Shown here is a 61-nucleotide RNA sequence, a member of the family "RAGATH-18 RNA". The base pairs follow the family's consensus structure, which is taken from published work. It is annotated as a small RNA. The sequence is in the family's curated seed alignment.
RNA sequence: UCCGUGGACAGCUAUACAAACUAGAGUAACUUCGGUGAAAUAGGGCUGGAAGAAACGGAAA
Number, nucleotide and partner (000 for none) at each position: 001u059002c058003c057004g056005u055006g000007g000008a000009c048010a047011g046012c045013u044014a000015u000016a000017c000018a000019a000020a000021c043022u042023a041024g000025a000026g000027u000028a000029a036030c035031u000032u000033c000034g000035g030036u029037g000038a000039a000040a000041u023042a022043g021044g013045g012046c011047u010048g009049g000050a000051a000052g000053a000054a000055a005056c004057g003058g002059a001060a000061a000